[Rfam]
RNA: Small nucleolar RNA SNORA31
Organism: Ailuropoda melanoleuca
RNA sequence: CUGCAUUCGCUGAUAGACCUUAAAUAAUAUGCUAUGGCUCUUUUGGUUUGCCGUAGGAUGCAAAAUAAAAAGUCUCUGCACUUUCUGUCUUUGUGGUGGCCCAGAUUGAGUAGGGAAAUAUAUUU
Numbered sequence: 001c002u003g004c005a006u007u008c009g010c011u012g013a014u015a016g017a018c019c020u021u022a023a024a025u026a027a028u029a030u031g032c033u034a035u036g037g038c039u040c041u042u043u044u045g046g047u048u049u050g051c052c053g054u055a056g057g058a059u060g061c062a063a064a065a066u067a068a069a070a071a072g073u074c075u076c077u078g079c080a081c082u083u084u085c086u087g088u089c090u091u092u093g094u095g096g097u098g099g100c101c102c103a104g105a106u107u108g109a110g111u112a113g114g115g116a117a118a119u120a121u122a123u124u125u
Stems, first nucleotide, its partner, number of pairs: 002062007012051001014050006023039001025037001027035002073117001075115003081108001084105004089095001